RNA sequence: GGAGGGUUAUCGUAACAGUAAUUCAACUUAGUACGAGAGGAACUGUUGAUUCGUGUAAUUGGUCUUGGCCGUUGUCCAACAGGGCAGUGCGGCGAAGCUACCACACGCUAGAUAAUGGCUGAACGCCUCUAAGCCAGAAUCUGUGCUGGAAGCGAUGAUGUUGGUCCCGCUUGUAUGAAAUGCGUAAAAAUAAGGCAUCUUCGGAUGCUUGUGUACCAUAGCUGGCGAGGGACGGGCUGUUGGACGGAAAGGUCUGCGGUCUACCUCGUGAAUUGCAAUCACAAUAUGAGCGGGGAAAAAUCUCUUGCAGACGACUUGAAUGGGAAGGGGGUGCUGUAAGCAGUAGAGUGGCCUUGUUGCUACGAUCUGCUGAGGCUCAGCCCUAUCUUCCACGAUUUGU
Number, nucleotide and partner (000 for none) at each position: 001g000002g000003a000004g000005g000006g159007u158008u157009a156010u155011c154012g153013u152014a000015a000016c148017a147018g146019u145020a000021a051022u000023u049024c048025a047026a046027c045028u000029u000030a000031g000032u000033a000034c000035g000036a000037g000038a000039g000040g000041a000042a000043c000044u000045g027046u026047u025048g024049a023050u000051u021052c107053g106054u105055g104056u103057a000058a000059u000060u100061g099062g098063u000064c000065u000066u000067g000068g093069c092070c091071g090072u087073u086074g085075u084076c083077c082078a000079a000080c000081a000082g077083g076084g075085c074086a073087g072088u000089g000090c071091g070092g069093c068094g000095a000096a000097g000098c062099u061100a060101c000102c000103a056104c055105a054106c053107g052108c000109u143110a142111g141112a000113u000114a000115a000116u136117g135118g134119c133120u132121g000122a000123a000124c000125g000126c000127c000128u000129c000130u000131a000132a120133g119134c118135c117136a116137g000138a000139a000140u000141c111142u110143g109144u000145g019146c018147u017148g016149g000150a000151a000152g013153c012154g011155a010156u009157g008158a007159u006160g000161u000162u000163g000164g000165u000166c294167c293168c292169g291170c290171u289172u288173g000174u000175a000176u000177g000178a000179a000180a000181u000182g000183c000184g000185u000186a000187a000188a000189a000190a000191u000192a000193a000194g000195g000196c000197a000198u000199c000200u000201u000202c000203g000204g000205a000206u000207g000208c000209u000210u000211g000212u000213g000214u000215a000216c000217c000218a000219u000220a000221g000222c000223u000224g000225g000226c000227g000228a000229g000230g000231g000232a000233c000234g000235g000236g000237c000238u000239g000240u000241u000242g000243g000244a000245c000246g000247g000248a000249a000250a000251g000252g000253u000254c000255u000256g000257c000258g000259g000260u000261c000262u000263a000264c000265c000266u000267c000268g000269u000270g000271a000272a000273u000274u000275g000276c000277a000278a000279u000280c000281a000282c000283a000284a000285u000286a000287u000288g172289a171290g170291c169292g168293g167294g166295g000296a000297a000298a398299a397300a396301u395302c394303u319304c318305u000306u000307g315308c000309a000310g000311a000312c000313g000314a000315c307316u000317u000318g304319a303320a000321u000322g000323g000324g390325a389326a388327g387328g386329g383330g382331g381332u000333g376334c375335u000336g000337u000338a000339a000340g370341c369342a368343g367344u000345a366346g000347a000348g363349u362350g361351g360352c359353c000354u000355u000356g000357u000358u000359g352360c351361u350362a349363c348364g000365a000366u345367c343368u342369g341370c340371u000372g000373a000374g000375g334376c333377u000378c000379a000380g000381c331382c330383c329384u000385a000386u328387c327388u326389u325390c324391c000392a000393c000394g302395a301396u300397u299398u298399g000400u000
RNA: Eukaryotic large subunit ribosomal RNA, nucleotides 3012 to 3411